This 156-nucleotide RNA sequence from Populus alba belongs to the Rfam family "MIR2912 microRNA precursor family".
Gene Ontology terms of the family: RISC complex and miRNA-mediated post-transcriptional gene silencing.

RNA sequence: UCUAGAACUCCAGAUAUGGGCCAAACACUGAAUAGUGUUUGGGCUGCAGGACAGAUUUGGACUUCUCCGUUGUUGCUGUAAUUUGGACUUGAAAACGGCCUUCUUAGAUCUUGGUGUCCACAUAAAAGUUGUAGGCCUAUGUCUUACUGAAUUGGU
Number, nucleotide and partner (000 for none) at each position: 001u000002c155003u154004a153005g152006a000007a000008c000009u146010c000011c000012a144013g143014a142015u141016a140017u139018g138019g137020g136021c134022c000023a132024a000025a130026c000027a129028c128029u127030g000031a000032a000033u000034a000035g123036u122037g121038u000039u000040u000041g119042g118043g117044c000045u000046g000047c000048a112049g111050g110051a109052c000053a000054g105055a104056u000057u000058u000059g100060g099061a000062c098063u097064u000065c000066u000067c000068c000069g000070u000071u000072g088073u087074u086075g000076c000077u000078g000079u000080a000081a000082u000083u000084u000085g000086g074087a073088c072089u000090u000091g000092a000093a000094a000095a000096c000097g063098g062099c060100c059101u000102u000103c000104u055105u054106a000107g000108a000109u051110c050111u049112u048113g000114g000115u000116g000117u043118c042119c041120a000121c037122a036123u035124a000125a000126a000127a029128g028129u027130u025131g000132u023133a000134g021135g000136c020137c019138u018139a017140u016141g015142u014143c013144u012145u000146a009147c000148u000149g000150a000151a000152u005153u004154g003155g002156u000